This 304-nucleotide RNA sequence from Carnegiea gigantea belongs to the Rfam family "Plant signal recognition particle RNA". The family's consensus secondary structure is taken from published work. A reference for the family is Wild et al. (2002), "Towards the structure of the mammalian signal recognition particle", Curr Opin Struct Biol. By type it is a non-coding RNA gene.
[Rfam]
RNA sequence: GCCAAGUUGAGUAGCAUCAGCUUGUACCUGAAGUGAGGGCAUCAAGAUGAUGGGACUUAGCUUAAUUUCACAUGGUAAGGCUACAAGUUGUGGCUUGCUAGCAUGCCCAUUCCGACAUGGGAGUUGAGCUGCGUAGGUUAGACGAAGGCCUGGUCCAAAUAGCUCCUAAGGAGGAGGCAUUGCGUCAGGCUGCCUUCAUAGAGUAGCGAAUACCUCCCGCCCUCAGCAGUGGAAGGAUAACAAGUUGGGGCAUCCUCUGUCCAUCAUUACCCUGUGGAAGGAGCUCAAUCGGACCAUCACCUUU
Numbered sequence: 001g002c003c004a005a006g007u008u009g010a011g012u013a014g015c016a017u018c019a020g021c022u023u024g025u026a027c028c029u030g031a032a033g034u035g036a037g038g039g040c041a042u043c044a045a046g047a048u049g050a051u052g053g054g055a056c057u058u059a060g061c062u063u064a065a066u067u068u069c070a071c072a073u074g075g076u077a078a079g080g081c082u083a084c085a086a087g088u089u090g091u092g093g094c095u096u097g098c099u100a101g102c103a104u105g106c107c108c109a110u111u112c113c114g115a116c117a118u119g120g121g122a123g124u125u126g127a128g129c130u131g132c133g134u135a136g137g138u139u140a141g142a143c144g145a146a147g148g149c150c151u152g153g154u155c156c157a158a159a160u161a162g163c164u165c166c167u168a169a170g171g172a173g174g175a176g177g178c179a180u181u182g183c184g185u186c187a188g189g190c191u192g193c194c195u196u197c198a199u200a201g202a203g204u205a206g207c208g209a210a211u212a213c214c215u216c217c218c219g220c221c222c223u224c225a226g227c228a229g230u231g232g233a234a235g236g237a238u239a240a241c242a243a244g245u246u247g248g249g250g251c252a253u254c255c256u257c258u259g260u261c262c263a264u265c266a267u268u269a270c271c272c273u274g275u276g277g278a279a280g281g282a283g284c285u286c287a288a289u290c291g292g293a294c295c296a297u298c299a300c301c302u303u304u
Stems, first nucleotide, its partner, number of pairs: 001040003004023007028037002044303003048299006056291001058288001060286001061283003066278001068277005074271004079262002082259002085256001090253003094250002098248005104242002107236002110234005118225004123220002126165006134157001136155006143148001166171001173217005181210001183208003190201003